RNA sequence: UCAAAAAGGCAAUUAUAUUUGUCAUCAUGAAAAUAUUAAAUAACAAUUGGUGGUGGAGUAAAUUACGUCUCAGGUCGUGAUCCACAUUCCUUUUAUAUAAACUCAUAAAGGCUUGUC
Numbered sequence: 001u002c003a004a005a006a007a008g009g010c011a012a013u014u015a016u017a018u019u020u021g022u023c024a025u026c027a028u029g030a031a032a033a034u035a036u037u038a039a040a041u042a043a044c045a046a047u048u049g050g051u052g053g054u055g056g057a058g059u060a061a062a063u064u065a066c067g068u069c070u071c072a073g074g075u076c077g078u079g080a081u082c083c084a085c086a087u088u089c090c091u092u093u094u095a096u097a098u099a100a101a102c103u104c105a106u107a108a109a110g111g112c113u114u115g116u117c
Stems, first nucleotide, its partner, number of pairs: 036100003040096004045091001049088004056082002063077001065075002
Overview: The family of this 117-nucleotide RNA sequence from Psychroflexus salis is "Bacteroidete tryptophan peptide leader RNA". The match comes from Rfam's covariance-model search (51 bits). By type it is a cis-regulatory leader. The family's consensus secondary structure is taken from published work. Lineage of the source: Bacteria > Flavobacteriia > Flavobacteriales > Flavobacteriaceae > Psychroflexus.